Shown here is a 75-nucleotide RNA sequence from Xanthomonas campestris, a member of the family "Xanthomonas sRNA sX9". Rfam 15.1 lists 309 matches to the family in 52 species. Rfam classes the family as a small RNA. The family's consensus secondary structure was predicted with RNAalifold.
RNA sequence: AUGUGCCCGCGGACACUCCGGUUCCUCCGCGUCGUCCGCACCAACCUGACGAUUAACCGUUCCGCUGUGUUCGCG
Numbered sequence: 001a002u003g004u005g006c007c008c009g010c011g012g013a014c015a016c017u018c019c020g021g022u023u024c025c026u027c028c029g030c031g032u033c034g035u036c037c038g039c040a041c042c043a044a045c046c047u048g049a050c051g052a053u054u055a056a057c058c059g060u061u062c063c064g065c066u067g068u069g070u071u072c073g074c075g
Base pairs, nucleotide, nucleotide: 002015003014004013006011019034020033021032022031024029046073048071049070050069051068